[Rfam]
RNA sequence: CGAUGGGGUAGAGGUCGCGGUUAUUAAGAGUAAGACGGACGAGAUCCAGAGAGAUUGAUAACUCCAUCUGAAAGGAAUAACUGCCGAAGCUUGUACACAUCUCUGUGUGUAUCGGCUGGGGCUGUAUCCAAAUAGGAGCAGAACUGUCACGUUUAUUGAUUCCAAAUGAACGUGUUGUGCUAUCUUCGGA
Numbered sequence: 001c002g003a004u005g006g007g008g009u010a011g012a013g014g015u016c017g018c019g020g021u022u023a024u025u026a027a028g029a030g031u032a033a034g035a036c037g038g039a040c041g042a043g044a045u046c047c048a049g050a051g052a053g054a055u056u057g058a059u060a061a062c063u064c065c066a067u068c069u070g071a072a073a074g075g076a077a078u079a080a081c082u083g084c085c086g087a088a089g090c091u092u093g094u095a096c097a098c099a100u101c102u103c104u105g106u107g108u109g110u111a112u113c114g115g116c117u118g119g120g121g122c123u124g125u126a127u128c129c130a131a132a133u134a135g136g137a138g139c140a141g142a143a144c145u146g147u148c149a150c151g152u153u154u155a156u157u158g159a160u161u162c163c164a165a166a167u168g169a170a171c172g173u174g175u176u177g178u179g180c181u182a183u184c185u186u187c188g189g190a
Stems, first nucleotide, its partner, number of pairs: 006185006017084009033069003037065003088117004093112007118145002122141004127136002148174009
RNA: Lysine riboswitch aptamer
Organism: Heyndrickxia oleronia